[Rfam]
RNA sequence: UUCUCAUCCAGAGAGGUUGAGGGACUGGCCCAAUGAAACCUCGGCAACCAACAGGUUCAUUUACCUGGAAAGGUGCCAACUCCUGCGCCCUGGUUAAGCUUGGGUCGAAAGAUGAGAG
Numbered sequence: 001u002u003c004u005c006a007u008c009c010a011g012a013g014a015g016g017u018u019g020a021g022g023g024a025c026u027g028g029c030c031c032a033a034u035g036a037a038a039c040c041u042c043g044g045c046a047a048c049c050a051a052c053a054g055g056u057u058c059a060u061u062u063a064c065c066u067g068g069a070a071a072g073g074u075g076c077c078a079a080c081u082c083c084u085g086c087g088c089c090c091u092g093g094u095u096a097a098g099c100u101u102g103g104g105u106c107g108a109a110a111g112a113u114g115a116g117a118g
Base pairs, nucleotide, nucleotide: 001118002117003116004115005114006113007112008111013042014041015040016039017038021031022030023029025085027083028082043077044076045075046074048073049072052067053066054065055064081110086107087106089104090103091102092101093100
Shown here is a 118-nucleotide RNA sequence from Oxobacter pfennigii, a member of the family "SAM riboswitch aptamer (S box leader)". A reference for the family is Stoddard et al. (2010), "Free state conformational sampling of the SAM-I riboswitch aptamer domain", Structure. The match comes from Rfam's covariance-model search (88 bits). Taxonomically the source falls in Oxobacter (Bacteria, Bacillota, Clostridia, Eubacteriales).